[Rfam]
Nucleotides: 087
Stems, first nucleotide, its partner, number of pairs: 034067003039062002041058007
Number, partner (000 for none) and nucleotide at each position: 001000a002000a003000a004000a005000c006000c007000u008000a009000a010000u011000a012000c013000a014000a015000c016000g017000a018000a019000a020000g021000c022000c023000c024000u025000a026000c027000c028000u029000c030000u031000c032000u033000u034067u035066c036065g037000u038000c039062c040061u041058u042057a043056c044055a045054a046053c047052u048000c049000c050000a051000u052047g053046g054045u055044u056043g057042u058041g059000c060000c061040a062039g063000u064000g065036u066035g067034a068000a069000u070000c071000g072000g073000u074000c075000u076000u077000u078000c079000u080000u081000u082000c083000c084000u085000a086000c087000c